This 394-nucleotide RNA from Abiotrophia defectiva belongs to the Rfam family "Bacterial RNase P class B". NCBI's taxonomy places the organism under Bacteria, Bacilli, Lactobacillales, Aerococcaceae, Abiotrophia defectiva. For this family Rfam cites "Ribonuclease P: unity and diversity in a tRNA processing ribozyme" (Frank and Pace, Annu Rev Biochem, 1998). The match comes from Rfam's covariance-model search (308 bits). From the family's description: Ribonuclease P (RNase P) is a ubiquitous endoribonuclease, found in archaea, bacteria and eukarya as well as chloroplasts and mitochondria. Its best characterised activity is the generation of mature 5'-ends of tRNAs by cleaving the 5'-leader elements of precursor-tRNAs. Cellular RNase Ps are ribonucleoproteins. RNA from bacterial RNase Ps retains its catalytic activity in the absence of the protein subunit, i.e. it is a ribozyme. Isolated eukaryotic and archaeal RNase P RNA has not been shown to retain its catalytic function, but is still essential for the catalytic activity of the holoenzyme. Although the archaeal and eukaryotic holoenzyme s have a much greater protein content than the bacterial ones, the RNA cores from all the three lineages are homologous -- helices corresponding to P1, P2, P3, P4, and P10/11 are common to all cellular RNase P RNAs. Yet, there is considerable sequence variation, particularly among the eukaryotic RNAs.

Nucleotides: 394
Base pairs, nucleotide, nucleotide: 004394005393006392007390008340009339010338011337012336013335014334016031017030018029019028020027021026036388037387038386040385041384042383043382044381045229046228047227048226049225050067051066052065053064054063055062073224074223075222077220078099079098080097081096082095083094100117101115102114103113104112105111106110118219119218121160122159123158129151130150131149132148136145137144138143166217167216168213169212170211182201183200184199185198186197187196188195189194233270234269235268274304275303276302277301278300279299280298305325306324308322309321310320311319312318313317342374343373344372345371346370347369348368349367350366
Number, partner (000 for none) and nucleotide at each position: 001000g002000a003000u004394u005393u006392u007390a008340g009339g010338u011337a012336a013335u014334c015000g016031c017030g018029g019028c020027u021026a022000g023000c024000g025000a026021u027020a028019g029018u030017u031016g032000a033000g034000g035000a036388a037387a038386g039000u040385c041384c042383a043382u044381g045229c046228u047227c048226g049225c050067a051066c052065a053064g054063g055062c056000u057000g058000a059000g060000a061000u062055g063054c064053c065052u066051g067050u068000a069000g070000u071000g072000u073224u074223c075222g076000u077220g078099c079098u080097u081096a082095g083094c084000g085000a086000a087000a088000c089000c090000a091000u092000a093000a094083g095082c096081u097080a098079a099078g100117g101115u102114a103113g104112u105111g106110c107000c108000u109000a110106g111105c112104g113103c114102u115101a116000a117100c118219g119218g120000c121160a122159g123158g124000c125000a126000a127000a128000a129151g130150g131149u132148c133000u134000a135000a136145g137144g138143c139000u140000u141000c142000g143138g144137c145136u146000a147000u148132g149131a150130c151129u152000g153000a154000g155000u156000a157000a158123c159122c160121u161000c162000u163000a164000a165000g166217g167216u168213g169212c170211c171000a172000c173000a174000g175000a176000g177000a178000c179000g180000a181000g182201g183200c184199u185198g186197g187196u188195u189194g190000g191000a192000a193000a194189c195188a196187a197186c198185u199184a200183g201182c202000g203000u204000g205000g206000a207000a208000c209000g210000c211170g212169g213168u214000a215000a216167a217166c218119c219118c220077c221000u222075c223074g224073a225049g226048c227047g228046a229045g230000c231000a232000a233270c234269c235268c236000a237000a238000a239000u240000a241000g242000u243000g244000a245000c246000c247000u248000a249000g250000u251000u252000u253000c254000u255000a256000g257000g258000u259000a260000u261000a262000c263000u264000g265000g266000u267000c268235g269234g270233g271000g272000c273000a274304c275303u276302u277301u278300u279299c280298c281000u282000a283000g284000g285000g286000a287000a288000a289000u290000g291000a292000a293000c294000c295000g296000a297000u298280g299279g300278a301277a302276g303275a304274g305325g306324c307000g308322g309321g310320u311319c312318a313317c314000c315000u316000a317313g318312u319311g320310g321309c322308c323000g324306g325305c326000a327000g328000a329000c330000a331000g332000a333000u334014g335013a336012u337011u338010a339009c340008c341000c342374c343373a344372c345371u346370u347369a348368a349367g350366g351000u352000g353000u354000a355000u356000c357000g358000c359000c360000u361000a362000u363000u364000u365000c366350c367349c368348u369347u370346a371345a372344g373343u374342g375000a376000c377000a378000g379000a380000a381044c382043a383042u384041g385040g386038c387037u388036u389000a390007u391000c392006g393005a394004a